[Rfam]
This 115-nucleotide sequence from Medicago truncatula belongs to the Rfam family "MIR2593 microRNA precursor family". Taxonomically the source falls in Medicago (Eukaryota, Embryophyta, Tracheophyta, Mesangiospermae). Pairs were carried over by alignment from the consensus structure, which was predicted with RNAalifold.

RNA sequence: AUAUAAGCAAAAUUCUACUUUUUAGAUACAUUCAAUUAAUGAUGGAUGUGACAUAUAAUAAGGACCACAUACAUCAUUAAUUGAAUGUAUCUAAAGAGUGGAUUUUUGCUUAUAU
Numbered sequence: 001a002u003a004u005a006a007g008c009a010a011a012a013u014u015c016u017a018c019u020u021u022u023u024a025g026a027u028a029c030a031u032u033c034a035a036u037u038a039a040u041g042a043u044g045g046a047u048g049u050g051a052c053a054u055a056u057a058a059u060a061a062g063g064a065c066c067a068c069a070u071a072c073a074u075c076a077u078u079a080a081u082u083g084a085a086u087g088u089a090u091c092u093a094a095a096g097a098g099u100g101g102a103u104u105u106u107u108g109c110u111u112a113u114a115u
Stems, first nucleotide, its partner, number of pairs: 002114006009107004015101011027089018049067002